[Rfam]
Nucleotides: 176
Base pairs, nucleotide, nucleotide: 001176002175003174004173005172006171007170009168010167011166012165013164014163015162017160018159019158021156022155023154024153025152026151027150028149031146033144035142036141037140038139039138041136042135043134044133045132046131047130048129051126052125054123055122057120058119063114064113065112069108070107071106072105074103075102076101078099079098086097087096
Number, partner (000 for none) and nucleotide at each position: 001176a002175a003174c004173c005172a006171c007170a008000c009168u010167a011166u012165c013164a014163g015162u016000g017160a018159a019158u020000g021156g022155a023154u024153u025152c026151g027150c028149c029000c030000a031146u032000u033144a034000u035142a036141u037140g038139a039138u040000g041136u042135g043134g044133u045132u046131g047130u048129u049000c050000c051126a052125c053000u054123u055122a056000g057120g058119a059000c060000g061000a062000g063114g064113a065112c066000g067000u068000g069108g070107c071106a072105u073000u074103c075102u076101a077000a078099u079098a080000u081000c082000a083000a084000c085000c086097a087096u088000c089000u090000c091000a092000u093000g094000a095000a096087a097086u098079u099078a100000a101076u102075a103074g104000u105072a106071u107070g108069c109000c110000a111000u112065g113064u114063u115000c116000u117000c118000a119058u120057c121000c122055u123054a124000g125052g126051u127000g128000a129048a130047a131046u132045a133044g134043c135042c136041a137000c138039g139038u140037c141036a142035u143000c144033u145000c146031a147000c148000g149028g150027g151026u152025g153024a154023a155022u156021c157000u158019a159018u160017u161000c162015a163014u164013u165012g166011a167010u168009a169000g170007u171006g172005u173004g174003g175002u176001u
This 176-nucleotide sequence from Oryza meridionalis belongs to the Rfam family "MIR807 microRNA precursor family". On this family, see Luo et al., FEBS Lett 2006: "Rice embryogenic calli express a unique set of microRNAs, suggesting regulatory roles of microRNAs in plant post-embryogenic development". Rfam links the family to the GO terms RISC complex and miRNA-mediated post-transcriptional gene silencing. The base pairs follow the family's consensus structure, which was predicted with WAR.